About this RNA: UnaL2 LINE 3' element: a 54-nucleotide RNA from Megalops atlanticus. The match comes from Rfam's covariance-model search (55 bits). Rfam describes the family as follows. The eel long interspersed element (LINE) UnaL2 and its partner short interspersed element (SINE) share a conserved 3' tail containing a stem-loop that is critical for their retrotransposition.
[Rfam]
RNA sequence: CAAUCUACAGCAUGUAAGUCACUCUGGAUAAGAGUGUCUGUUAAAUGACAGCAA
Numbered sequence: 001c002a003a004u005c006u007a008c009a010g011c012a013u014g015u016a017a018g019u020c021a022c023u024c025u026g027g028a029u030a031a032g033a034g035u036g037u038c039u040g041u042u043a044a045a046u047g048a049c050a051g052c053a054a
Stems, first nucleotide, its partner, number of pairs: 013043001014041003020036006
Dot-bracket structure: ............((((...((((((.....))))))..))).)...........